[Rfam]
Nucleotides: 343
Stems, first nucleotide, its partner, number of pairs: 039054005058198005069191007084177003088174003094110005111159007199214004204224003210220001310324004315341001317339001319337002
Number, partner (000 for none) and nucleotide at each position: 001000u002000c003000g004000c005000u006000u007000u008000u009000c010000a011000u012000u013000c014000a015000g016000a017000a018000a019000u020000a021000u022000c023000c024000g025000c026000c027000u028000a029000u030000a031000u032000a033000g034000g035000g036000c037000u038000c039054g040053u041052u042051c043050g044000c045000u046000u047000c048000g049000g050043c051042g052041g053040a054039c055000u056000a057000u058198g059197g060196u061195g062194a063000u064000a065000a066000a067000u068000u069191g070190u071189g072188a073187u074186g075185u076000g077000c078000a079000a080000u081000a082000g083000g084177c085176a086175c087000a088174g089173c090172g091000g092000a093000c094110c095109c096108g097107g098106g099000g100000g101000c102000a103000g104000u105000a106098c107097c108096c109095g110094g111159c112158g113157g114156c115155u116154c117153c118000a119000c120000c121000a122000u123000u124000u125000c126000g127000g128000a129000u130000g131000g132000c133000u134000u135000u136000g137000a138000g139000g140000c141000a142000u143000c144000c145000u146000u147000g148000u149000u150000g151000a152000c153117g154116g155115g156114g157113c158112c159111g160000a161000a162000c163000c164000a165000g166000g167000a168000u169000c170000g171000a172090c173089g174088u175086g176085u177084g178000u179000u180000g181000a182000a183000a184000a185075g186074c187073a188072u189071u190070g191069u192000u193000u194062u195061u196060a197059c198058c199214c200213g201212g202211c203000c204224u205223g206222a207000g208000u209000a210220u211202g212201c213200c214199g215000u216000g217000a218000u219000u220210g221000c222206u223205c224204a225000u226000u227000u228000u229000a230000u231000a232000a233000g234000u235000g236000c237000a238000a239000a240000c241000g242000a243000u244000a245000a246000c247000g248000a249000a250000g251000c252000a253000c254000u255000c256000g257000c258000a259000g260000u261000a262000g263000c264000g265000g266000c267000u268000u269000a270000a271000g272000c273000c274000a275000a276000c277000g278000a279000c280000c281000u282000c283000a284000c285000g286000g287000u288000u289000g290000u291000a292000a293000c294000u295000u296000g297000a298000g299000a300000a301000g302000u303000u304000a305000a306000a307000g308000c309000g310324c311323g312322g313321u314000u315341g316000g317339a318000c319337c320336c321313a322312c323311c324310g325000g326000g327000c328000a329000a330000c331000a332000g333000a334000a335000g336320g337319g338000a339317u340000a341315c342000c343000g